A member of the RNA family "SAM (S-adenosyl methionine) riboswitch aptamer" from Arthrobacter wenxiniae, 117 nucleotides long. About the family: SAM-IV is a mRNA element that regulates gene expression via direct sensing of S-adenosylmethionine (SAM or AdoMet). The organism belongs to Arthrobacter, within Bacteria.

RNA sequence: GGUCAUGAGUGCCAGCGACAAGCCCCGGCUCGCUGGCCGGCAACCCUCCUUCCGCGGCGGGGUGCCCCGGGUGAAGACCUGGCGUUGGGCCAACCGGCACCAACGCAAGCGUGGGCC
Numbered sequence: 001g002g003u004c005a006u007g008a009g010u011g012c013c014a015g016c017g018a019c020a021a022g023c024c025c026c027g028g029c030u031c032g033c034u035g036g037c038c039g040g041c042a043a044c045c046c047u048c049c050u051u052c053c054g055c056g057g058c059g060g061g062g063u064g065c066c067c068c069g070g071g072u073g074a075a076g077a078c079c080u081g082g083c084g085u086u087g088g089g090c091c092a093a094c095c096g097g098c099a100c101c102a103a104c105g106c107a108a109g110c111g112u113g114g115g116c117c
Base pairs, nucleotide, nucleotide: 001079002078003077004076009038011037012036013035014034015033016032021030022029039066040065041064044062045061046060048057049056082106083105084104085103086102087101088100089098090097091096